The record is an 84-nucleotide sequence from Dokdonella koreensis, which matches "sRNA-Xcc1" in Rfam. A search with the family's covariance model found it, with a score of 67 bits. The organism belongs to Dokdonella koreensis, within Bacteria.

RNA sequence: GCCGGGAGGGCGGCUAAUACAACACCCCGCAAGGGGAAAUACGCCCGCCGUCUCUGUGCGGUUCUAGCCUCCCGGCAUCCCCGG
Numbered sequence: 001g002c003c004g005g006g007a008g009g010g011c012g013g014c015u016a017a018u019a020c021a022a023c024a025c026c027c028c029g030c031a032a033g034g035g036g037a038a039a040u041a042c043g044c045c046c047g048c049c050g051u052c053u054c055u056g057u058g059c060g061g062u063u064c065u066a067g068c069c070u071c072c073c074g075g076c077a078u079c080c081c082c083g084g
Stems, first nucleotide, its partner, number of pairs: 001076009012045003015041002025036003047062005
The base pairs follow the family's consensus structure, which was predicted with RNAalifold. Rfam 15.1 lists 421 matches to the family in 299 species.